RNA sequence: CUUGCCUAUGAUGAGUUGCAAACUUUAUUGCCUACAUUGUUUGAUCGACACUGUGAGAAGCUUAUGCAACGUCUGAGGAUGAG
Numbered sequence: 001c002u003u004g005c006c007u008a009u010g011a012u013g014a015g016u017u018g019c020a021a022a023c024u025u026u027a028u029u030g031c032c033u034a035c036a037u038u039g040u041u042u043g044a045u046c047g048a049c050a051c052u053g054u055g056a057g058a059a060g061c062u063u064a065u066g067c068a069a070c071g072u073c074u075g076a077g078g079a080u081g082a083g
Stems, first nucleotide, its partner, number of pairs: 001083002004080001005078002
A member of the RNA family "Small nucleolar RNA SNORD34" from Hordeum vulgare, 83 nucleotides long.
It scores 61 bits against the family's covariance model.
The source organism's lineage runs through Eukaryota, Viridiplantae, Spermatophyta, Magnoliopsida and Hordeum vulgare.
The family has 14 seed sequences and 1,319 matches in Rfam 15.1.
On this family, see Galardi et al., Mol Cell Biol 2002: "Purified box C/D snoRNPs are able to reproduce site-specific 2'-O-methylation of target RNA in vitro".
snoRNA U34 is found in intron 5 of the ribosomal protein L13a gene in humans.